RNA sequence: AGCAAAGGCAUCAUUGAGUGCAGCGUUGAUGAACCUAAAAGUCUGAAACUGGCUCAAAGGUUCACCAGCACUGCACCCAAUUACGCCCUUG
Numbered sequence: 001a002g003c004a005a006a007g008g009c010a011u012c013a014u015u016g017a018g019u020g021c022a023g024c025g026u027u028g029a030u031g032a033a034c035c036u037a038a039a040a041g042u043c044u045g046a047a048a049c050u051g052g053c054u055c056a057a058a059g060g061u062u063c064a065c066c067a068g069c070a071c072u073g074c075a076c077c078c079a080a081u082u083a084c085g086c087c088c089u090u091g
Stems, first nucleotide, its partner, number of pairs: 007087003011083001013081004018076006025069004030064007
RNA: MIR397 microRNA precursor family